The record is a 46-nucleotide RNA from Verrucomicrobia bacterium LW23, which matches "Acido-Lenti-1 RNA" in Rfam.
[Rfam]
RNA sequence: CCCAGGGCGUACGCCCUGGGCUAUAGGCUUUCGCGCUUUUGGCGCU
Number, nucleotide and partner (000 for none) at each position: 001c020002c019003c018004a017005g016006g015007g014008c013009g000010u000011a000012c000013g008014c007015c006016c005017u004018g003019g002020g001021c000022u000023a000024u000025a000026g000027g000028c000029u000030u000031u000032c000033g045034c044035g043036c042037u041038u000039u000040u000041g037042g036043c035044g034045c033046u000